[Rfam]
RNA: SAM riboswitch aptamer (S box leader)
RNA sequence: CCACCAUCGAGACCGGCAGAGGGACAGGCCCACUGAAGCCGGGGCAGCCAGGCGACGCGCAAGCGCCACCCAGGUGCCAAAUCCUGCGGAGACCCUGGCGUCUGCCGAAAGAUGGUUC
Dot-bracket structure: ..((((((....(((((...(((.[[[[)))......)))))((((.((.(.................)...))))))...(]]]](((.(...........).)))..)))))))..
Numbered sequence: 001c002c003a004c005c006a007u008c009g010a011g012a013c014c015g016g017c018a019g020a021g022g023g024a025c026a027g028g029c030c031c032a033c034u035g036a037a038g039c040c041g042g043g044g045c046a047g048c049c050a051g052g053c054g055a056c057g058c059g060c061a062a063g064c065g066c067c068a069c070c071c072a073g074g075u076g077c078c079a080a081a082u083c084c085u086g087c088g089g090a091g092a093c094c095c096u097g098g099c100g101u102c103u104g105c106c107g108a109a110a111g112a113u114g115g116u117u118c
Stems, first nucleotide, its partner, number of pairs: 003116006013042005021031003025086004043078004048074002051069001082110001087107003091103001